[Rfam]
RNA sequence: AUCCAAGGUGAUUCCCUCUCCAAGGGGCCAACUAGUGCCCCUUUCAGGAAAGUAGCAACUUGGAAUAAAAUCUGGCAUGCCUAAGGUCUCUGAGAGACAGGAUUAUUUCCUUUACCUUCCUUUGGCUGCCUACAGGU
Numbered sequence: 001a002u003c004c005a006a007g008g009u010g011a012u013u014c015c016c017u018c019u020c021c022a023a024g025g026g027g028c029c030a031a032c033u034a035g036u037g038c039c040c041c042u043u044u045c046a047g048g049a050a051a052g053u054a055g056c057a058a059c060u061u062g063g064a065a066u067a068a069a070a071u072c073u074g075g076c077a078u079g080c081c082u083a084a085g086g087u088c089u090c091u092g093a094g095a096g097a098c099a100g101g102a103u104u105a106u107u108u109c110c111u112u113u114a115c116c117u118u119c120c121u122u123u124g125g126c127u128g129c130c131u132a133c134a135g136g137u
Stems, first nucleotide, its partner, number of pairs: 002064006009057002019049003022043007075127001078125001085118001092110001094108003
RNA: Small nucleolar RNA SNORA67
Organism: Fukomys damarensis